[Rfam]
Nucleotides: 055
Base pairs, nucleotide, nucleotide: 002015003014004013028040029039030038031037
Number, partner (000 for none) and nucleotide at each position: 001000c002015g003014g004013u005000u006000g007000g008000c009000a010000g011000u012000c013004a014003c015002c016000a017000a018000g019000g020000c021000g022000u023000c024000g025000c026000u027000g028040u029039c030038c031037c032000u033000g034000c035000a036000a037031g038030g039029g040028a041000a042000a043000g044000c045000u046000a047000a048000a049000g050000c051000u052000g053000c054000c055000a

Shown here is a 55-nucleotide RNA sequence from Sulfitobacter mediterraneus, a member of the family "COG3860 RNA". Lineage of the source: Bacteria > Pseudomonadati > Pseudomonadota > Roseobacteraceae > Sulfitobacter. A search with the family's covariance model found it, with a score of 52 bits. Pairs were carried over by alignment from the consensus structure, which is taken from published work. It is annotated as a cis-regulatory element.